The family of this 74-nucleotide RNA sequence from Alligator sinensis is "Mammalian CPEB3 ribozyme". NCBI's taxonomy places the organism under Eukaryota, Chordata, Dipnotetrapodomorpha, Crocodylia, Alligator. Its family is annotated with RNA nuclease activity in the Gene Ontology. The base pairs follow the family's consensus structure, which is taken from published work.

[Rfam]
RNA sequence: UCACAAGUUCAAGGCCAUAGCAGAAGUGCUCAUGGCGCAGCCUGUUGGAUUCUAAUGAGUCUCCAAAUUCUACU
Numbered sequence: 001u002c003a004c005a006a007g008u009u010c011a012a013g014g015c016c017a018u019a020g021c022a023g024a025a026g027u028g029c030u031c032a033u034g035g036c037g038c039a040g041c042c043u044g045u046u047g048g049a050u051u052c053u054a055a056u057g058a059g060u061c062u063c064c065a066a067a068u069u070c071u072a073c074u
Base pairs, nucleotide, nucleotide: 013042014041015040019074020073022071023070024069025068026038027037028036047062048061049060050059051058052057